[Rfam]
Description
The family of this 103-nucleotide RNA sequence from Clostridium cadaveris is "SAM riboswitch aptamer (S box leader)".
RNA sequence: CUCUUAUCCAGAGAGGUGGAGGGAAAUGGCCCGAUGAAACCCGGCAACCUGUGCUUUCGUGCACAAAGGUGCCAAUUCCAGCAGCUAUGCUGCAAGAUAAGAG
Numbered sequence: 001c002u003c004u005u006a007u008c009c010a011g012a013g014a015g016g017u018g019g020a021g022g023g024a025a026a027u028g029g030c031c032c033g034a035u036g037a038a039a040c041c042c043g044g045c046a047a048c049c050u051g052u053g054c055u056u057u058c059g060u061g062c063a064c065a066a067a068g069g070u071g072c073c074a075a076u077u078c079c080a081g082c083a084g085c086u087a088u089g090c091u092g093c094a095a096g097a098u099a100a101g102a103g
Stems, first nucleotide, its partner, number of pairs: 001103008013042001015041003021032003027080003043073004048069002050065004077095001082092004